RNA sequence: CUGACUGCAACGCAAACCGCUUGGCAGGAGCGGGGGACCCAAUUCCGGGUCGACCUUCGGGUCGUCCCUUGGGGUUAAGCCAGUUCCGACUGGCCGGGCAGAACCUCCCGCCCGAACCCGACAGCUCACCCCGUAGGCAUCGAGAGGUUCA
Number, nucleotide and partner (000 for none) at each position: 001c137002u136003g000004a000005c000006u029007g000008c027009a000010a000011c000012g000013c000014a000015a000016a000017c000018c000019g000020c000021u000022u000023g000024g000025c000026a000027g008028g000029a006030g134031c133032g132033g131034g130035g129036g000037a000038c000039c000040c071041a070042a000043u000044u000045c000046c000047g000048g000049g000050u000051c000052g000053a000054c000055c000056u000057u000058c000059g000060g000061g000062u000063c000064g000065u000066c000067c000068c000069u000070u041071g040072g119073g118074g117075u000076u000077a000078a000079g000080c093081c092082a091083g090084u000085u000086c000087c000088g000089a000090c083091u082092g081093g080094c000095c000096g113097g112098g111099c110100a000101g000102a000103a000104c000105c000106u000107c000108c000109c000110g099111c098112c097113c096114g000115a000116a000117c074118c073119c072120g000121a000122c000123a000124g000125c000126u000127c000128a000129c035130c034131c033132c032133g031134u030135a000136g002137g001138c000139a000140u000141c000142g000143a000144g000145a000146g000147g000148u000149u000150c000151a000
This 151-nucleotide sequence from Knoellia locipacati belongs to the Rfam family "c-di-AMP riboswitch aptamer (ydaO/yuaA leader)".
The base pairs follow the family's consensus structure.